[Rfam]
RNA sequence: GGGUCGAUGAUGAACCUUAUAUUGUUGAAGAGAGUGAUGACAUAAAAUAUGCUCAUAGGAUUACGCUGAGGCCC
Numbered sequence: 001g002g003g004u005c006g007a008u009g010a011u012g013a014a015c016c017u018u019a020u021a022u023u024g025u026u027g028a029a030g031a032g033a034g035u036g037a038u039g040a041c042a043u044a045a046a047a048u049a050u051g052c053u054c055a056u057a058g059g060a061u062u063a064c065g066c067u068g069a070g071g072c073c074c
Stems, first nucleotide, its partner, number of pairs: 001074004005068002008065002
This 74-nucleotide sequence from Macaca mulatta belongs to the Rfam family "Small nucleolar RNA SNORD115". By type it is a C/D-box small nucleolar RNA. The match comes from Rfam's covariance-model search (68 bits). Rfam links the family to the GO terms RNA processing and nucleolus. Lineage of the source: Eukaryota > Deuterostomia > Mammalia > Cercopithecoidea > Macaca. The family's consensus secondary structure was predicted with PFOLD. A reference for the family is Cavaille et al. (2000), "Identification of brain-specific and imprinted small nucleolar RNA genes exhibiting an unusual genomic organization", Proc Natl Acad Sci U S A.